[Rfam]
RNA sequence: GCAGGAGGACGGCCUCCCCCAUUGCGGGUCAUCACGUCGGGACGGCCCGG
Numbered sequence: 001g002c003a004g005g006a007g008g009a010c011g012g013c014c015u016c017c018c019c020c021a022u023u024g025c026g027g028g029u030c031a032u033c034a035c036g037u038c039g040g041g042a043c044g045g046c047c048c049g050g
Stems, first nucleotide, its partner, number of pairs: 001020001004017005037050005

A member of the RNA family "Guanidine-II riboswitch aptamer (mini-ykkC)" from Paenacidovorax monticola, 50 nucleotides long. The literature on the family includes a 2017 paper in Cell Chem Biol by Huang et al., "The Structure of the Guanidine-II Riboswitch". Gene Ontology term of the family: regulation of gene expression. Taxonomically the source falls in Paenacidovorax (Bacteria, Betaproteobacteria, Burkholderiales, Comamonadaceae).